[Rfam]
RNA: mir-9261 microRNA precursor family
RNA sequence: AACAAUUUGUCCCGCGUCCCCCGGCGUUUUAAAAAACGUCCCGAUUUUUGGAAAGAAUUAUUCCAAAAAUUAUUCUUUCCAAAAAUCGGGACGUUUUUAAAACGCCGGGGGACGCGGGACAAAUUGUUGA
Number, nucleotide and partner (000 for none) at each position: 001a128002a127003c126004a125005a124006u123007u122008u121009g120010u119011c118012c117013c116014g115015c114016g113017u112018c111019c110020c109021c108022c107023g106024g105025c104026g103027u102028u101029u100030u099031a098032a097033a096034a095035a094036a000037c000038g000039u000040c000041c000042c000043g000044a000045u000046u000047u000048u000049u000050g000051g000052a000053a000054a000055g000056a000057a000058u000059u000060a000061u000062u000063c000064c000065a000066a000067a000068a000069a000070u000071u000072a000073u000074u000075c000076u000077u000078u000079c000080c000081a000082a000083a000084a000085a000086u000087c000088g000089g000090g000091a000092c000093g000094u035095u034096u033097u032098u031099a030100a029101a028102a027103c026104g025105c024106c023107g022108g021109g020110g019111g018112a017113c016114g015115c014116g013117g012118g011119a010120c009121a008122a007123a006124u005125u004126g003127u002128u001129g000130a000